[Rfam]
Flavo-1 RNA: a 70-nucleotide RNA from Flavobacterium psychrophilum.

RNA sequence: AUAUAGCCCUGAUGGAGUGAAAAUCCUUGCCAUUUUUCUUGGCAAGAUUGUAGCGAGAGCAGGAAAUUAG
Numbered sequence: 001a002u003a004u005a006g007c008c009c010u011g012a013u014g015g016a017g018u019g020a021a022a023a024u025c026c027u028u029g030c031c032a033u034u035u036u037u038c039u040u041g042g043c044a045a046g047a048u049u050g051u052a053g054c055g056a057g058a059g060c061a062g063g064a065a066a067u068u069a070g
Stems, first nucleotide, its partner, number of pairs: 009062003013058001017054002022049004028044005
Lineage of the source: Bacteria > Pseudomonadati > Bacteroidota > Flavobacterium > Flavobacterium psychrophilum. Rfam classes the family as a small RNA.